[Rfam]
RNA sequence: GAGAACUAAGAAUCUGAUGAGUCGAAUGACGGGGUAACGUCCUGAAAGGCUCAGCCUAAUCCUCCGAAUUGCGUCAUUAUGUGCAAUCAGAAUGGCGUGAUAAGCUCGGUGAAGUCAGCUGAAUAUCACCCUAAUCGAAAGAAGGAAAGCGGGAUAGAGGUAUCUUGUGUGAUAGAUAGGCUGGGGGUCUAUAAG
Numbered sequence: 001g002a003g004a005a006c007u008a009a010g011a012a013u014c015u016g017a018u019g020a021g022u023c024g025a026a027u028g029a030c031g032g033g034g035u036a037a038c039g040u041c042c043u044g045a046a047a048g049g050c051u052c053a054g055c056c057u058a059a060u061c062c063u064c065c066g067a068a069u070u071g072c073g074u075c076a077u078u079a080u081g082u083g084c085a086a087u088c089a090g091a092a093u094g095g096c097g098u099g100a101u102a103a104g105c106u107c108g109g110u111g112a113a114g115u116c117a118g119c120u121g122a123a124u125a126u127c128a129c130c131c132u133a134a135u136c137g138a139a140a141g142a143a144g145g146a147a148a149g150c151g152g153g154a155u156a157g158a159g160g161u162a163u164c165u166u167g168u169g170u171g172a173u174a175g176a177u178a179g180g181c182u183g184g185g186g187g188u189c190u191a192u193a194a195g
Stems, first nucleotide, its partner, number of pairs: 018053006031043004055186003064109004068101011080089002116183005124174006130145003149168008

Shown here is a 195-nucleotide RNA sequence from Domibacillus mangrovi, a member of the family "Group II catalytic intron D1-D4-5". Its family is annotated with Group II intron splicing in the Gene Ontology. For this family Rfam cites "Control of branch-site choice by a group II intron" (Chu et al., EMBO J, 2001). It scores 173 bits against the family's covariance model.